Overview: Shown here is a 108-nucleotide RNA sequence from bacterium J10(2018), a member of the family "Bacteroidales small SRP". Rfam links the family to the GO terms SRP-dependent cotranslational protein targeting to membrane, signal sequence recognition and signal recognition particle, plasma membrane targeting.
RNA sequence: UUGCAACGGGUAAGUCCUACACGACCAGCUCCCCGGGAACUCCGCCAGGCCUUGACCGGAGCAACGGUACCGGGUUGUAGCGGUGCGAUGUAGUAAGCUUGCCCUUUU
Dot-bracket structure: .......((((((((.(((((((((.........................................................)).)).)))))...))))))))....